mir-7 microRNA precursor family: an 88-nucleotide sequence from Microtus ochrogaster. Gene Ontology terms of the family: RISC complex and miRNA-mediated post-transcriptional gene silencing.

[Rfam]
RNA sequence: CGGCCAGCCCCGUAUGGAAGACUAGUGAUUUUGUUGUUGUCUCUCUAUGCUCAACAACAAGUCCCAGUCUACCACAUGGUGCUGGUCC
Numbered sequence: 001c002g003g004c005c006a007g008c009c010c011c012g013u014a015u016g017g018a019a020g021a022c023u024a025g026u027g028a029u030u031u032u033g034u035u036g037u038u039g040u041c042u043c044u045c046u047a048u049g050c051u052c053a054a055c056a057a058c059a060a061g062u063c064c065c066a067g068u069c070u071a072c073c074a075c076a077u078g079g080u081g082c083u084g085g086u087c088c
Stems, first nucleotide, its partner, number of pairs: 002087007010079004015074003019070005025065001027063005033058006